[Rfam]
Annotation: Rfam assigns this 75-nucleotide RNA sequence from Thiomicrospira sp. WB1 to the family "c-di-GMP-I-GGC riboswitch aptamer". The source organism's lineage runs through Bacteria, Pseudomonadati, Gammaproteobacteria, Piscirickettsiaceae and Thiomicrospira. Pairs were carried over by alignment from the consensus structure, which is taken from published work. A search with the family's covariance model found it, with a score of 61 bits. Its Rfam clan is "c-di-GMP_I riboswitch clan".
RNA sequence: AAAGAAAAAGCUAAAUUCGUCGCGAGGCGGAGGCGGAAAACCACGGAUCUCACGCAGAUGGCCGGGUUGCCUUUC
Numbered sequence: 001a002a003a004g005a006a007a008a009a010g011c012u013a014a015a016u017u018c019g020u021c022g023c024g025a026g027g028c029g030g031a032g033g034c035g036g037a038a039a040a041c042c043a044c045g046g047a048u049c050u051c052a053c054g055c056a057g058a059u060g061g062c063c064g065g066g067u068u069g070c071c072u073u074u075c
Stems, first nucleotide, its partner, number of pairs: 003072002011036002016031006034061001039068004044064003047059003